[Rfam]
RNA: ASpks TB sRNA
RNA sequence: CUUCACCGACCCCAGCAGCACCGGCCGCUCCCGACCCUGCCCAUAGGUCGCCAGCAACGCCUGCGCCUC
Numbered sequence: 001c002u003u004c005a006c007c008g009a010c011c012c013c014a015g016c017a018g019c020a021c022c023g024g025c026c027g028c029u030c031c032c033g034a035c036c037c038u039g040c041c042c043a044u045a046g047g048u049c050g051c052c053a054g055c056a057a058c059g060c061c062u063g064c065g066c067c068u069c
Base pairs, nucleotide, nucleotide: 015025016024028065030063032059033058037054038053039052041050043048
Dot-bracket structure: ..............((.......))..(.(.((...(((.(.(....).).)))...))...).)....